Rfam assigns this 96-nucleotide RNA from Meloidogyne javanica to the family "mir-72 microRNA precursor family".
Its family is annotated with RISC complex and miRNA-mediated post-transcriptional gene silencing in the Gene Ontology.
The source organism's lineage runs through Eukaryota, Metazoa, Ecdysozoa, Tylenchina and Meloidogyne.
[Rfam]
RNA sequence: ACAAGGCAAGAUGUUGGCAUUGCUGAAUUUGUGUAAUUGAAAAAAUCUUUUAUUUACACUUUUAAAUGUAUCAGCCAUGCUACAUUGGGCCAUGCC
Numbered sequence: 001a002c003a004a005g006g007c008a009a010g011a012u013g014u015u016g017g018c019a020u021u022g023c024u025g026a027a028u029u030u031g032u033g034u035a036a037u038u039g040a041a042a043a044a045a046u047c048u049u050u051u052a053u054u055u056a057c058a059c060u061u062u063u064a065a066a067u068g069u070a071u072c073a074g075c076c077a078u079g080c081u082a083c084a085u086u087g088g089g090c091c092a093u094g095c096c
Stems, first nucleotide, its partner, number of pairs: 005091003011085004016081003022075005
Dot-bracket structure: ....(((...((((.(((...(((((............................................)))))...)))))))...))).....